Notes: Rfam assigns this 272-nucleotide RNA sequence from Rubripirellula reticaptiva to the family "Group II catalytic intron D1-D4-6".
RNA sequence: UGAAUCCCGUCUGAGUAGCUGUUAGCCACAGGCUCAGUAUCGAGUUUUGCAGCGUUGGUAUAAGACGUUUCACGUUGAAGUCCAACGUUGAAGCGUAAACAGAAAGGUAGUGAGGGUGAAAGGUACUGACUGGCUGUCAGGCCCUGAACGAGAUUGAGCUCCGAAAACAUGGUUUCCUGUCGGAUACUGCCCACGGUCUGUGCAUGCCUGAAGGCCACGCUCAACGACGCGUCAAUGGCGAGUGUAGUUGAGAGUCCCGGAGUCGAGGAUCC
Numbered sequence: 001u002g003a004a005u006c007c008c009g010u011c012u013g014a015g016u017a018g019c020u021g022u023u024a025g026c027c028a029c030a031g032g033c034u035c036a037g038u039a040u041c042g043a044g045u046u047u048u049g050c051a052g053c054g055u056u057g058g059u060a061u062a063a064g065a066c067g068u069u070u071c072a073c074g075u076u077g078a079a080g081u082c083c084a085a086c087g088u089u090g091a092a093g094c095g096u097a098a099a100c101a102g103a104a105a106g107g108u109a110g111u112g113a114g115g116g117u118g119a120a121a122g123g124u125a126c127u128g129a130c131u132g133g134c135u136g137u138c139a140g141g142c143c144c145u146g147a148a149c150g151a152g153a154u155u156g157a158g159c160u161c162c163g164a165a166a167a168c169a170u171g172g173u174u175u176c177c178u179g180u181c182g183g184a185u186a187c188u189g190c191c192c193a194c195g196g197u198c199u200g201u202g203c204a205u206g207c208c209u210g211a212a213g214g215c216c217a218c219g220c221u222c223a224a225c226g227a228c229g230c231g232u233c234a235a236u237g238g239c240g241a242g243u244g245u246a247g248u249u250g251a252g253a254g255u256c257c258c259g260g261a262g263u264c265g266a267g268g269a270u271c272c
Base pairs, nucleotide, nucleotide: 012036013035014034015033019031020030021029022028023241025239026238038105040103041102044100045099046098047097048095049094050090051089052088053087054086055085056084057083058082155266156264158263159262160261161260162259163258182257183256184255187254188253189215190214191213195208196207197206220252221251222250223249224248225247227245228244229243230242
A reference for the family is Chu et al. (2001), "Control of branch-site choice by a group II intron", EMBO J.
Group II introns are found in rRNA, tRNA and mRNA of organelles in fungi, plants and protists, and also in mRNA in bacteria.
Rfam links the family to the GO term Group II intron splicing.
It scores 108 bits against the family's covariance model.